[Rfam]
Rfam assigns this 113-nucleotide RNA from Petasospora fabianii to the family "Small nucleolar RNA snR48". The family's RNA type in Rfam is C/D-box small nucleolar RNA. The family is grouped with related families in Rfam's "SNORD60 clan".

RNA sequence: UUCUACAUGAUGAUUUCAUUUCUUAUAAGUAUGUUUUUUCUGGCAUCUCUAAUGUUAGGGCCUUGUUUCAGUACCGGGCUCGAUGAGUACAACCAUUGACUAUAUAUCUGAUA
Dot-bracket structure: ..........................................................((((..............)))).................................